GP20-b RNA: a 68-nucleotide RNA sequence. Rfam's curators put it in the seed alignment.
RNA sequence: UGUCCUGUUGGAUGACGUAAAAAGCCACAACCAACUAAUCAGGUGGGAGCAACCCCGUAAAAAGCGUA
Number, nucleotide and partner (000 for none) at each position: 001u017002g016003u015004c014005c000006u000007g000008u000009u027010g026011g025012a000013u023014g004015a003016c002017g001018u000019a000020a000021a000022a000023a013024g000025c011026c010027a009028c000029a000030a000031c000032c000033a000034a000035c000036u000037a000038a000039u000040c000041a000042g000043g000044u057045g056046g055047g054048a000049g000050c000051a000052a000053c000054c047055c046056c045057g044058u000059a000060a000061a000062a000063a000064g000065c000066g000067u000068a000